[Rfam]
RNA anti-toxin A: a 90-nucleotide sequence from Enterococcus hirae. The organism belongs to Enterococcus hirae, within Bacteria. Its family is annotated with mRNA binding and negative regulation of translation in the Gene Ontology. Rfam 15.1 lists 190 matches to the family in 120 species. A reference for the family is Fozo et al. (2010), "Abundance of type I toxin-antitoxin systems in bacteria: searches for new candidates and discovery of novel families", Nucleic Acids Res.

RNA sequence: UAAUAGACAUAGAAAAAGGACGUGCUGGUAACACGUCCUGUGUAGAACCGUUAAAAAGACGGUGACGAAACUUUAAUGUUUGAUUAAAUA
Numbered sequence: 001u002a003a004u005a006g007a008c009a010u011a012g013a014a015a016a017a018g019g020a021c022g023u024g025c026u027g028g029u030a031a032c033a034c035g036u037c038c039u040g041u042g043u044a045g046a047a048c049c050g051u052u053a054a055a056a057a058g059a060c061g062g063u064g065a066c067g068a069a070a071c072u073u074u075a076a077u078g079u080u081u082g083a084u085u086a087a088a089u090a
Stems, first nucleotide, its partner, number of pairs: 021035004047063006